[Rfam]
RNA sequence: UACUUCUAUCUGGGGUGCUUGCCUAUAGCAAGCUGAGAAUUACCCAUUGAACCUGUAGGUUAGUACCUGCGUAGGGAGAUAACAAAAAGAGUCG
Numbered sequence: 001u002a003c004u005u006c007u008a009u010c011u012g013g014g015g016u017g018c019u020u021g022c023c024u025a026u027a028g029c030a031a032g033c034u035g036a037g038a039a040u041u042a043c044c045c046a047u048u049g050a051a052c053c054u055g056u057a058g059g060u061u062a063g064u065a066c067c068u069g070c071g072u073a074g075g076g077a078g079a080u081a082a083c084a085a086a087a088a089g090a091g092u093c094g
Stems, first nucleotide, its partner, number of pairs: 007081004011046004017033005052075004056069004
RNA: TPP riboswitch aptamer (THI element)